Notes
The record is a 75-nucleotide RNA sequence from Papaver nudicaule, which matches "Plastid-ycf2 5UTR RNA" in Rfam. Rfam classes the family as a cis-regulatory element. It scores 86 bits against the family's covariance model.
[Rfam]
RNA sequence: AUCCAUCCAGCAGGAAUCGACCCUACGAAUUUGCCAAUUAUGAGUUGGACGCUUUAACCAUUCAGCCAUGGAUGA
Numbered sequence: 001a002u003c004c005a006u007c008c009a010g011c012a013g014g015a016a017u018c019g020a021c022c023c024u025a026c027g028a029a030u031u032u033g034c035c036a037a038u039u040a041u042g043a044g045u046u047g048g049a050c051g052c053u054u055u056a057a058c059c060a061u062u063c064a065g066c067c068a069u070g071g072a073u074g075a
Base pairs, nucleotide, nucleotide: 004074005073006072007071008070010026012024013023014022040069041068042067044066045065046064047063048062049061051059
The literature on the family includes a 2023 paper in Plant Commun by Richter et al., "Retrograde signaling in plants: A critical review focusing on the GUN pathway and beyond".
From the family's description: Plastid ycf2 is a non-coding RNA (ncRNA) recognised in plastids. It was found in the prime untranslated region (5UTR) of ycf2 genes, it presents a tRNA-like motif which suggests it can be involved in mRNA maturation, particularly involved in defining the precise 5' end of the transcript.